[Rfam]
RNA: Glycine riboswitch aptamer
RNA sequence: ACACCUCUGGAAAGAGGGACGCCGGUUCGGUGUCCCCGCCGAAGGGGCAAGCUCGCGGUGACGCGCAGUGGAAGCUCUCAGGUACCGAUGACAGAGGGGGAGAG
Numbered sequence: 001a002c003a004c005c006u007c008u009g010g011a012a013a014g015a016g017g018g019a020c021g022c023c024g025g026u027u028c029g030g031u032g033u034c035c036c037c038g039c040c041g042a043a044g045g046g047g048c049a050a051g052c053u054c055g056c057g058g059u060g061a062c063g064c065g066c067a068g069u070g071g072a073a074g075c076u077c078u079c080a081g082g083u084a085c086c087g088a089u090g091a092c093a094g095a096g097g098g099g100g101a102g103a104g
Base pairs, nucleotide, nucleotide: 002099004097005096006095007094008093009092016036017035018034019033020032021031038083039082040081041079042078045077046076047075052070